[Rfam]
Nucleotides: 058
Stems, first nucleotide, its partner, number of pairs: 001017004029044006
Number, partner (000 for none) and nucleotide at each position: 001017g002016g003015g004014u005000c006000g007000g008000c009000a010000g011000a012000a013000c014004a015003c016002c017001c018000a019000g020000g021000c022000c023000u024000u025000g026000c027000c028000g029044c030043a031042c032041g033040g034039u035000g036000c037000a038000c039034g040033c041032c042031g043030u044029g045000a046000g047000c048000u049000g050000a051000a052000c053000c054000u055000g056000c057000c058000c
Annotation: The record is a 58-nucleotide RNA from Pelomonas sp. Root1444, which matches "COG3860 RNA" in Rfam. Lineage of the source: Bacteria > Betaproteobacteria > Burkholderiales > Sphaerotilaceae > Roseateles. Rfam classes the family as a cis-regulatory element.